[Rfam]
Shown here is a 102-nucleotide RNA sequence from Paenochrobactrum gallinarii, a member of the family "rpsB sRNA". The family's RNA type in Rfam is small RNA. A search with the family's covariance model found it, with a score of 48 bits. Rfam 15.1 lists 245 matches to the family in 245 species. Taxonomically the source falls in Paenochrobactrum (Bacteria, Pseudomonadota, Alphaproteobacteria, Brucellaceae).

RNA sequence: CACACACGGGCUAGUGGUUAAUAUCGGGAGAAAUCCGAUAUGACCUCCGGUGGCGGUUCUCCCGCCUCUGUCCGUGGAGGUUAAACCGGAAAAGGAAAAUUG
Number, nucleotide and partner (000 for none) at each position: 001c079002a000003c077004a000005c076006a075007c074008g073009g072010g071011c070012u000013a000014g000015u000016g045017g044018u000019u000020a000021a000022u000023a000024u000025c037026g036027g000028g035029a000030g000031a000032a000033a000034u000035c028036c026037g025038a000039u000040a000041u000042g000043a000044c017045c016046u000047c000048c000049g000050g000051u000052g066053g065054c064055g063056g062057u000058u000059c000060u000061c000062c056063c055064g054065c053066c052067u000068c000069u000070g011071u010072c009073c008074g007075u006076g005077g003078a000079g001080g000081u000082u000083a000084a000085a000086c000087c000088g000089g000090a000091a000092a000093a000094g000095g000096a000097a000098a000099a000100u000101u000102g000